[Rfam]
RNA sequence: UUUUUCCACUAGGGGAGCAAUUUGCUGAGAAAGGUGUAUACCUGACCCUUAUGACCUGAUAUGGCUAAUACCAGCGUAGGGAAGUGGAUCGGUUUUUUU
Numbered sequence: 001u002u003u004u005u006c007c008a009c010u011a012g013g014g015g016a017g018c019a020a021u022u023u024g025c026u027g028a029g030a031a032a033g034g035u036g037u038a039u040a041c042c043u044g045a046c047c048c049u050u051a052u053g054a055c056c057u058g059a060u061a062u063g064g065c066u067a068a069u070a071c072c073a074g075c076g077u078a079g080g081g082a083a084g085u086g087g088a089u090c091g092g093u094u095u096u097u098u099u
Base pairs, nucleotide, nucleotide: 006087007086008085009084010083011049012048013047014046017025018024019023032043033042034041035040055080056079057078058077062073063072064071
The family of this 99-nucleotide RNA from Heyndrickxia ginsengihumi is "TPP riboswitch aptamer (THI element)". The source organism's lineage runs through Bacteria, Bacillati, Bacilli, Caryophanales and Heyndrickxia. The match comes from Rfam's covariance-model search (78 bits).